[Rfam]
RNA: mir-2941 microRNA precursor family
Organism: Culex quinquefasciatus
RNA sequence: GUUGAAUUUCGCUGGAGUUCUGCCGGAUUGCAUUGACGAUUGGAAAUUUGUAGUACGGCUAGAACUCCACGGACAUUCGAC
Numbered sequence: 001g002u003u004g005a006a007u008u009u010c011g012c013u014g015g016a017g018u019u020c021u022g023c024c025g026g027a028u029u030g031c032a033u034u035g036a037c038g039a040u041u042g043g044a045a046a047u048u049u050g051u052a053g054u055a056c057g058g059c060u061a062g063a064a065c066u067c068c069a070c071g072g073a074c075a076u077u078c079g080a081c
Base pairs, nucleotide, nucleotide: 004078005077006076007075009073010072013069014068015067016066017065018064019063020062022059023058024057025056027054028053029052030051031050032049